The record is a 74-nucleotide RNA sequence from Desulfosudis oleivorans, which matches "tRNA" in Rfam.
The family's consensus secondary structure is taken from published work.
The family has 954 seed sequences and 5,335,975 matches in Rfam 15.1.
The source organism's lineage runs through Bacteria, Pseudomonadati, Desulfobacteria, Desulfobacterales and Desulfosudis oleivorans.
It scores 65 bits against the family's covariance model.

Nucleotides: 074
Base pairs, nucleotide, nucleotide: 001073002072003071004070005069006068007067010026011025012024013023029043030042031041032040050066051065052064053063054062
Number, partner (000 for none) and nucleotide at each position: 001073g002072c003071g004070c005069c006068c007067g008000u009000a010026g011025c012024u013023c014000a015000g016000c017000u018000g019000g020000a021000u022000a023013g024012a025011g026010u027000g028000c029043c030042g031041g032040a033000c034000u035000a036000c037000g038000a039000a040032u041031c042030c043029g044000u045000a046000g047000g048000u049000c050066g051065g052064g053063g054062g055000u056000u057000c058000g059000a060000a061000u062054c063053c064052c065051u066050c067007c068006g069005g070004g071003c072002g073001c074000g